Background
Shown here is a 79-nucleotide sequence from Alligator mississippiensis, a member of the family "Mammalian CPEB3 ribozyme".
[Rfam]
RNA sequence: AGAGGUCACAAGGUUGAGGCCAUAGCAGAAGUGCUCGCCGCGCAGCCUGUCAGAUUCCAAUGAACUUGUGAAUUCUUUU
Numbered sequence: 001a002g003a004g005g006u007c008a009c010a011a012g013g014u015u016g017a018g019g020c021c022a023u024a025g026c027a028g029a030a031g032u033g034c035u036c037g038c039c040g041c042g043c044a045g046c047c048u049g050u051c052a053g054a055u056u057c058c059a060a061u062g063a064a065c066u067u068g069u070g071a072a073u074u075c076u077u078u079u
Stems, first nucleotide, its partner, number of pairs: 018047003024079002027076004031043003051068003055064003
Dot-bracket structure: .................[[[...((.(((((((.......))).]]]...(((.(((....))).)))....)))).))

From the family's description: The mammalian CPEB3 ribozyme is a self cleaving RNA located in the second intron of the CPEB3 gene which belongs to a family of genes regulating messenger RNA polyadenylation. The family's consensus secondary structure is taken from published work.